The family of this 118-nucleotide RNA from Roseibium alexandrii is "Guanidine-I riboswitch aptamer". Taxonomically the source falls in Roseibium (Bacteria, Pseudomonadati, Pseudomonadota, Hyphomicrobiales). Pairs were carried over by alignment from the consensus structure. Rfam links the family to the GO term regulation of gene expression.
[Rfam]
Nucleotides: 118
Base pairs, nucleotide, nucleotide: 008049009048010047011046012045015040016039020037021036022034023032024031025030052090053089054088055087056086057085058084093113095116099111100110101109
Number, partner (000 for none) and nucleotide at each position: 001000g002000u003000g004000c005000a006000g007000c008049g009048c010047g011046c012045c013000u014000a015040g016039g017000g018000a019000u020037c021036c022034g023032g024031u025030c026000a027000c028000a029000c030025g031024a032023c033000g034022c035000a036021g037020g038000a039016c040015c041000g042000a043000g044000a045012g046011g047010u048009g049008c050000a051000a052090g053089c054088c055087g056086g057085g058084c059000a060000a061000g062000c063000a064000g065000a066000u067000c068000g069000c070000g071000a072000u073000g074000a075000u076000c077000u078000c079000a080000c081000a082000u083000a084058g085057c086056c087055c088054g089053g090052u091000g092000a093113c094000a095116c096000g097000g098000c099111g100110g101109g102000a103000c104000a105000a106000a107000a108000a109101c110100c111099c112000g113093g114000g115000a116095g117000a118000c